This 84-nucleotide sequence from Pan troglodytes belongs to the Rfam family "mir-548 microRNA precursor family".
The family's consensus secondary structure was predicted with WAR.
Lineage of the source: Eukaryota > Opisthokonta > Metazoa > Vertebrata > Pan.
RNA sequence: UCAUAGGUUGGUGCAAAAGUAGUUGCGGCUUUUGCCAUUGCAAGUAAUGGCAAAAACCGCAAUUACUUUUGCACCAACCUAAGA
Numbered sequence: 001u002c003a004u005a006g007g008u009u010g011g012u013g014c015a016a017a018a019g020u021a022g023u024u025g026c027g028g029c030u031u032u033u034g035c036c037a038u039u040g041c042a043a044g045u046a047a048u049g050g051c052a053a054a055a056a057c058c059g060c061a062a063u064u065a066c067u068u069u070u071g072c073a074c075c076a077a078c079c080u081a082a083g084a
Stems, first nucleotide, its partner, number of pairs: 001084002004081025030055011
Dot-bracket structure: ((.(((((((((((((((((((((((((.(((((((((((....))))))))))).))))))))))))))))))))))))).))
A search with the family's covariance model found it, with a score of 94 bits.
A reference for the family is Witten et al. (2010), "Ultra-high throughput sequencing-based small RNA discovery and discrete statistical biomarker analysis in a collection of cervical tumours and matched controls", BMC Biol.